A member of the RNA family "SAM (S-adenosyl methionine) riboswitch aptamer" from Kineococcus radiotolerans, 111 nucleotides long. SAM-IV is a mRNA element that regulates gene expression via direct sensing of S-adenosylmethionine (SAM or AdoMet). SAM-IV riboswitches share conserved nucleotide positions with the previously described SAM-I riboswitches sequence analysis and molecular recognition experiments suggest that SAM-I and SAM-IV riboswitches share similar ligand binding sites, but have different scaffolds. Gene Ontology terms of the family: regulation of gene expression and S-adenosylmethionine metabolic process. It is one of the family's seed sequences. Taxonomically the source falls in Kineococcus radiotolerans (Bacteria, Bacillati, Kineosporiales, Kineococcus).
RNA sequence: GGUCAUGAGUGACAGCGACAAGCCCUGGCUCGCUGUCCGGCAACCCUCCUCCGCGGCGGGGUGCCCCAGGUGAAGACCCGGCCGGACGAAAACGUCCGGCAAGCGCGGAUC
Numbered sequence: 001g002g003u004c005a006u007g008a009g010u011g012a013c014a015g016c017g018a019c020a021a022g023c024c025c026u027g028g029c030u031c032g033c034u035g036u037c038c039g040g041c042a043a044c045c046c047u048c049c050u051c052c053g054c055g056g057c058g059g060g061g062u063g064c065c066c067c068a069g070g071u072g073a074a075g076a077c078c079c080g081g082c083c084g085g086a087c088g089a090a091a092a093c094g095u096c097c098g099g100c101a102a103g104c105g106c107g108g109a110u111c
Stems, first nucleotide, its partner, number of pairs: 001078004009038001011037006021030002039065003044061003048056002081100008